Actinobacteria sRNA Ms_IGR-7: a 117-nucleotide RNA from Nocardioides sp. S5. Rfam 15.1 lists 463 matches to the family in 194 species. A reference for the family is Li et al. (2013), "Identification of small RNAs in Mycobacterium smegmatis using heterologous Hfq", RNA. Taxonomically the source falls in Nocardioides (Bacteria, Bacillati, Actinomycetes, Nocardioidaceae).

RNA sequence: CAGAGAUGUCCCUUGUGUUCGGUCGAAUCGUUGCCUCAAGAACUCCGAUUCUCCCGCUACACAAGGGCAUUCUCGUUUACGGCGCGCUCACCAGACCAAGUUCAUCGGUGGAUCCGG
Numbered sequence: 001c002a003g004a005g006a007u008g009u010c011c012c013u014u015g016u017g018u019u020c021g022g023u024c025g026a027a028u029c030g031u032u033g034c035c036u037c038a039a040g041a042a043c044u045c046c047g048a049u050u051c052u053c054c055c056g057c058u059a060c061a062c063a064a065g066g067g068c069a070u071u072c073u074c075g076u077u078u079a080c081g082g083c084g085c086g087c088u089c090a091c092c093a094g095a096c097c098a099a100g101u102u103c104a105u106c107g108g109u110g111g112a113u114c115c116g117g
Stems, first nucleotide, its partner, number of pairs: 002073003006070006013063001015062003020056003025051004030046001033043001100113005